[Rfam]
RNA sequence: ACGGCGAAUGCCGGUGGAACUACAUGAAUCAAUCGGUCGCGGGUUCGAGGCCCGCCAUCGCUUCCCGCGAUGUAGCUCAGGUAGGCAGAGCAGUUGAAAAUUGUUUCGCCAACCUCUUGUCGCCGCGAC
Numbered sequence: 001a002c003g004g005c006g007a008a009u010g011c012c013g014g015u016g017g018a019a020c021u022a023c024a025u026g027a028a029u030c031a032a033u034c035g036g037u038c039g040c041g042g043g044u045u046c047g048a049g050g051c052c053c054g055c056c057a058u059c060g061c062u063u064c065c066c067g068c069g070a071u072g073u074a075g076c077u078c079a080g081g082u083a084g085g086c087a088g089a090g091c092a093g094u095u096g097a098a099a100a101u102u103g104u105u106u107c108g109c110c111a112a113c114c115u116c117u118u119g120u121c122g123c124c125g126c127g128a129c
Stems, first nucleotide, its partner, number of pairs: 002125006013110007023096001032094002039055006046085001056072006075091004
The family of this 129-nucleotide sequence from Roseobacter insulae is "Y RNA-like". For this family Rfam cites "Structural Basis for tRNA Mimicry by a Bacterial Y RNA" (Wang et al., Structure, 2018). Rfam describes the family as follows. In Deinococcus radiodurans Rsr is tethered via Y RNA to the exoribonuclease PNPase and channels single-stranded RNA into the PNPase cavity. Rsr and Y RNA enhance degradation of structured RNAs by PNPase. NCBI's taxonomy places the organism under Bacteria, Pseudomonadota, Alphaproteobacteria, Roseobacteraceae, Roseobacter. The match comes from Rfam's covariance-model search (75 bits). Rfam classes the family as a small RNA.